[Rfam]
RNA sequence: AGCUGCCCAGAGUGGCGCAAGCCACAUAUCCCGUGACAUUGCGAAAGCAAGGCUGGCGGUAGGUAGUCCUGGGCGGCGACAGCCUUGGACUGCGGCGUAAAGGUGUACCUGGGGCCGUUAAACCUAUCGU
Numbered sequence: 001a002g003c004u005g006c007c008c009a010g011a012g013u014g015g016c017g018c019a020a021g022c023c024a025c026a027u028a029u030c031c032c033g034u035g036a037c038a039u040u041g042c043g044a045a046a047g048c049a050a051g052g053c054u055g056g057c058g059g060u061a062g063g064u065a066g067u068c069c070u071g072g073g074c075g076g077c078g079a080c081a082g083c084c085u086u087g088g089a090c091u092g093c094g095g096c097g098u099a100a101a102g103g104u105g106u107a108c109c110u111g112g113g114g115c116c117g118u119u120a121a122a123c124c125u126a127u128c129g130u
Stems, first nucleotide, its partner, number of pairs: 006113005033108002036106004040049003056130008065091004092118005